[Rfam]
Shown here is a 355-nucleotide sequence from Selenihalanaerobacter shriftii, a member of the family "Bacterial RNase P class A".
A search with the family's covariance model found it, with a score of 323 bits.

RNA sequence: UAAGUAGACUAAGUAAUCGUAAGUAGAGAUUGAAUCUCUACUUGAGGAAAGUCCGAGCUCCAUAGAGCAGGGUGCUGGGUAACACUCAGCCAAAGUGAUUUGCGGGAAAGUGCCACAGAGAGUAUACCGCCUACUGUAAAGUAGGUAAGGGUGAAAGGGUGCGGUAAGAGCGCACCGGGGGUCUGGUGACAGACACCGCAUGGUAAACCCCGCCUGGAGCAAGACCAAAUAGGGGGAGGUUAAGGGCUGCUCGUCCAUCUUCUCGGGUUAGGUCGCUUGAGGUAGUAGGUAACUACUACCCUAGAUAGAUGAUUACUUUAAAUGACAGAACUCGGCUUACAGGUCUGCUUAUUUG
Numbered sequence: 001u002a003a004g005u006a007g008a009c010u011a012a013g014u015a016a017u018c019g020u021a022a023g024u025a026g027a028g029a030u031u032g033a034a035u036c037u038c039u040a041c042u043u044g045a046g047g048a049a050a051g052u053c054c055g056a057g058c059u060c061c062a063u064a065g066a067g068c069a070g071g072g073u074g075c076u077g078g079g080u081a082a083c084a085c086u087c088a089g090c091c092a093a094a095g096u097g098a099u100u101u102g103c104g105g106g107a108a109a110g111u112g113c114c115a116c117a118g119a120g121a122g123u124a125u126a127c128c129g130c131c132u133a134c135u136g137u138a139a140a141g142u143a144g145g146u147a148a149g150g151g152u153g154a155a156a157g158g159g160u161g162c163g164g165u166a167a168g169a170g171c172g173c174a175c176c177g178g179g180g181g182u183c184u185g186g187u188g189a190c191a192g193a194c195a196c197c198g199c200a201u202g203g204u205a206a207a208c209c210c211c212g213c214c215u216g217g218a219g220c221a222a223g224a225c226c227a228a229a230u231a232g233g234g235g236g237a238g239g240u241u242a243a244g245g246g247c248u249g250c251u252c253g254u255c256c257a258u259c260u261u262c263u264c265g266g267g268u269u270a271g272g273u274c275g276c277u278u279g280a281g282g283u284a285g286u287a288g289g290u291a292a293c294u295a296c297u298a299c300c301c302u303a304g305a306u307a308g309a310u311g312a313u314u315a316c317u318u319u320a321a322a323u324g325a326c327a328g329a330a331c332u333c334g335g336c337u338u339a340c341a342g343g344u345c346u347g348c349u350u351a352u353u354u355g
Stems, first nucleotide, its partner, number of pairs: 001351010012317007020044009049338003053335005058219004065252004070215005075089005090104001091102004105210002110208002112204003127150002129146007158176006177199001178197002181194005223274004233264006244256004281300008